RNA sequence: GGGCGCCGAGCGAUCGGCGUUGACCACCGUGCAGAAGUCAGCAGAAGGCGUAGUAGGCGUGGUGGCGCGCGCCGAAGGCC
Numbered sequence: 001g002g003g004c005g006c007c008g009a010g011c012g013a014u015c016g017g018c019g020u021u022g023a024c025c026a027c028c029g030u031g032c033a034g035a036a037g038u039c040a041g042c043a044g045a046a047g048g049c050g051u052a053g054u055a056g057g058c059g060u061g062g063u064g065g066c067g068c069g070c071g072c073c074g075a076a077g078g079c080c
Stems, first nucleotide, its partner, number of pairs: 002021008038045002047080003056073006
RNA: Group II catalytic intron D1-D4-1
Organism: Truepera sp.